T-box leader: a 219-nucleotide RNA from Psychrobacillus psychrotolerans. On this family, see Grundy et al., J Bacteriol 1994: "Interaction between the acceptor end of tRNA and the T box stimulates antitermination in the Bacillus subtilis tyrS gene: a new role for the discriminator base".
RNA sequence: UCAAAAACGAUGAUAGGAAGCAGUAACAAGCUCGUUUUUUAUAGAGAGUCAGCGGUUGGUGAAAGCUGAUAUAAACACUUGUGAAUCCGUCCUUUGAGUUGUGCGGCUGAAUGAUUAGUAGGUCGUGCCGGUUGAAAAGCCGUUAGAGUACAAGUAAGUGGAUUCUGUCUAUGACAGGAUCAAUCAGGGUGGCAACGCGGGUAUGCUCUCGUCCCUUUU
Dot-bracket structure: ......((......((((.......(((((......(.(........((((((...........))))))).)....))))).......))))....))..(((((((............))))))).(((........)))..................(((((((.......)))))))....((((.......(((((......)))))))))...

The source organism's lineage runs through Bacteria, Bacillati, Caryophanales, Bacillaceae and Psychrobacillus. By type it is a cis-regulatory leader. Pairs were carried over by alignment from the consensus structure, which is taken from published work.